The family of this 161-nucleotide sequence from Salvia splendens is "U1 spliceosomal RNA". From the family's description: U1 is a small nuclear RNA (snRNA) component of the spliceosome (involved in pre-mRNA splicing). Its 5' end forms complementary base pairs with the 5' splice junction, thus defining the 5' donor site of an intron. The family's consensus secondary structure is taken from published work.
RNA sequence: AUACUUACCUGGACGGGGUCAAUGGGCGAUCCAGAAGACCCAUGGCCUAGUUUGGUGACCUCCAUUGCACUUUGGAGUGCCGCUCAACUAAGGUCGGCCCAAGUGGUCGAGCCUGCGUCAUAAUUUGUGUUAGUGGGGGCCUGCGUUCGCGCGGCCCCUAU
Numbered sequence: 001a002u003a004c005u006u007a008c009c010u011g012g013a014c015g016g017g018g019u020c021a022a023u024g025g026g027c028g029a030u031c032c033a034g035a036a037g038a039c040c041c042a043u044g045g046c047c048u049a050g051u052u053u054g055g056u057g058a059c060c061u062c063c064a065u066u067g068c069a070c071u072u073u074g075g076a077g078u079g080c081c082g083c084u085c086a087a088c089u090a091a092g093g094u095c096g097g098c099c100c101a102a103g104u105g106g107u108c109g110a111g112c113c114u115g116c117g118u119c120a121u122a123a124u125u126u127g128u129g130u131u132a133g134u135g136g137g138g139g140c141c142u143g144c145g146u147u148c149g150c151g152c153g154g155c156c157c158c159u160a161u
Stems, first nucleotide, its partner, number of pairs: 012119004016048006023042004049089003053086001055083003059079001061077001062075002091114003094110003098106002134160005142153004